Rfam assigns this 132-nucleotide sequence from Myotis lucifugus to the family "Small nucleolar RNA SNORA63". A search with the family's covariance model found it, with a score of 113 bits. For this family Rfam cites "Three small nucleolar RNAs that are involved in ribosomal RNA precursor processing" (Mishra and Eliceiri, Proc Natl Acad Sci U S A, 1997).

[Rfam]
RNA sequence: AAUUAUUAAUUAAUUGCCAAUAUAGCUGUUAAGUGCUGUGUUGUCAUUCCCCCUGCUCAAAAUAAAGUUGUUUCUUAACUAUACCUGCCUGCUAGACUCCUGUAGCAGCCAGGGACGCUUGGUCUCAUACAU
Dot-bracket structure: ...((..........(.(((((((((........)))))))))).........))............................((((.((((............)))).))))...................